[Rfam]
RNA sequence: GAAUGAAGUGAUGAUUGAACUUUGUUUCCCUAUUGGUUUGAUCGCCGAUAUGAUGGCAUACGUAUUAGCUCUAUCUGAUCAUUC
Numbered sequence: 001g002a003a004u005g006a007a008g009u010g011a012u013g014a015u016u017g018a019a020c021u022u023u024g025u026u027u028c029c030c031u032a033u034u035g036g037u038u039u040g041a042u043c044g045c046c047g048a049u050a051u052g053a054u055g056g057c058a059u060a061c062g063u064a065u066u067a068g069c070u071c072u073a074u075c076u077g078a079u080c081a082u083u084c
Stems, first nucleotide, its partner, number of pairs: 002083004044057003
RNA: Small nucleolar RNA Z102/R77